[Rfam]
RNA sequence: CAGUGCAGCCACCCAUAAAGUAGAAAGCACUACUAGACAGGACUGAACGCUGUAGUGUUUCCUACUUUAUGGAUGAGUGUACUGG
Number, nucleotide and partner (000 for none) at each position: 001c000002a000003g000004u000005g000006c000007a000008g000009c000010c000011a000012c000013c000014c071015a070016u069017a068018a067019a066020g065021u064022a063023g062024a000025a000026a059027g058028c057029a056030c055031u054032a053033c052034u000035a000036g000037a000038c000039a000040g000041g000042a000043c000044u000045g000046a000047a000048c000049g000050c000051u000052g033053u032054a031055g030056u029057g028058u027059u026060u000061c000062c023063u022064a021065c020066u019067u018068u017069a016070u015071g014072g000073a000074u000075g000076a000077g000078u000079g000080u000081a000082c000083u000084g000085g000

Annotation: The record is an 85-nucleotide sequence from Xenopus tropicalis, which matches "mir-142 microRNA precursor family" in Rfam. The base pairs follow the family's consensus structure, which was predicted with RNAalifold. The literature on the family includes a 2010 paper in BMC Genomics by Linsen et al., "Small RNA expression and strain specificity in the rat".